Record summary
The family of this 138-nucleotide RNA from Cottoperca gobio is "Small nucleolar RNA SNORA22". Rfam's curators write: ACA22 is a member of the H/ACA class of snoRNA that guide the sites of modification of uridines to pseudouridines. Lineage of the source: Eukaryota > Opisthokonta > Neopterygii > Bovichtidae > Cottoperca. Rfam 15.1 lists 883 matches to the family in 606 species.
RNA sequence: CUGCACAGGAGAACACCCAAGGGUGCUAUCGUAGCUCCCCUUGUCUCUUGUAUCUGUGCCAGAGUAAAUCCUGAUCUGUACCUCUGCAUUAGGAGAGUCCCCUUCUCCCCUACAUGUAUUCAACAGAUCAGAAUAAAC
Number, nucleotide and partner (000 for none) at each position: 001c000002u000003g059004c058005a057006c056007a055008g054009g000010a000011g053012a000013a000014c050015a049016c000017c043018c000019a041020a000021g039022g000023g037024u000025g035026c034027u033028a000029u000030c000031g000032u000033a027034g026035c025036u000037c023038c000039c021040c000041u019042u000043g017044u000045c000046u000047c000048u000049u015050g014051u000052a000053u011054c008055u007056g006057u005058g004059c003060c000061a077062g076063a075064g000065u073066a072067a000068a000069u000070c000071c000072u066073g065074a000075u063076c062077u061078g000079u000080a000081c000082c000083u000084c000085u122086g121087c116088a115089u114090u000091a111092g110093g109094a000095g107096a106097g105098u000099c000100c000101c000102c000103u000104u000105c097106u096107c095108c000109c093110c092111u091112a000113c000114a089115u088116g087117u000118a000119u000120u000121c086122a085123a000124c000125a000126g000127a000128u000129c000130a000131g000132a000133a000134u000135a000136a000137a000138c000